[Rfam]
RNA sequence: UUGGAGUGGGACCUCCCAUCGAACUCACCUCUUGCCUUUUACCAGAUGUGACCGUGGGAAUGGCCCAACAGACUCCAUUUCAAUAAUCUUUGGCAUUACCUCAUCUGGAUGGUU
Dot-bracket structure: ..((((..((.(((((((......((((.(((...........))).))))...)))))..)).))......))))..................((((.(.......).)))).
RNA: U5 spliceosomal RNA